The record is a 74-nucleotide RNA sequence from Clostridium perfringens, which matches "RAGATH-18 RNA" in Rfam. By type it is a small RNA.

RNA sequence: CCCUUGGAGAGUUAUAUCAAAUGAAAGUAGAUUACUAUUUAUAGUUUUCAAAAUCUGACUCGUAGAACAGGGAA
Number, nucleotide and partner (000 for none) at each position: 001c072002c071003c070004u069005u000006g000007g000008a000009g061010a060011g059012u058013u057014a000015u000016a000017u000018c000019a000020a000021a000022u000023g055024a054025a000026a000027g000028u000029a000030g049031a048032u000033u000034a000035c044036u043037a000038u000039u000040u000041a000042u000043a036044g035045u000046u000047u000048u031049c030050a000051a000052a000053a000054u024055c023056u000057g013058a012059c011060u010061c009062g000063u000064a000065g000066a000067a000068c000069a004070g003071g002072g001073a000074a000